The family of this 141-nucleotide RNA from Zizania palustris is "small nucleolar RNA snoR137". Rfam classes the family as an H/ACA-box small nucleolar RNA. The source organism's lineage runs through Eukaryota, Viridiplantae, Petrosaviidae, Poales and Zizania. For this family Rfam cites "Mining small RNA sequencing data: a new approach to identify small nucleolar RNAs in Arabidopsis" (Chen and Wu, Nucleic Acids Res, 2009). Rfam 15.1 lists 808 matches to the family in 221 species.

RNA sequence: GUUGCUUCUCGACUGGAAGAAUGGCUGAUGAUAAAAGUUUGGUCACAUCUGUAGAGAGAAGCAUAGAAUGAGCUUGGCCAGAAUUAAACAGCAUGGCGCUUCGUUUCACCGCGUCAUUGUUACCUGUCUCCUGGCACAUUU
Numbered sequence: 001g002u003u004g005c006u007u008c009u010c011g012a013c014u015g016g017a018a019g020a021a022u023g024g025c026u027g028a029u030g031a032u033a034a035a036a037g038u039u040u041g042g043u044c045a046c047a048u049c050u051g052u053a054g055a056g057a058g059a060a061g062c063a064u065a066g067a068a069u070g071a072g073c074u075u076g077g078c079c080a081g082a083a084u085u086a087a088a089c090a091g092c093a094u095g096g097c098g099c100u101u102c103g104u105u106u107c108a109c110c111g112c113g114u115c116a117u118u119g120u121u122a123c124c125u126g127u128c129u130c131c132u133g134g135c136a137c138a139u140u141u
Base pairs, nucleotide, nucleotide: 003063004062005061006060007059008058018050019049020048022045023044024043025042026041077135078134079133080132081131083129090121091120092119094116095115096114097113098112
Pairs were carried over by alignment from the consensus structure, which was predicted with RNAalifold.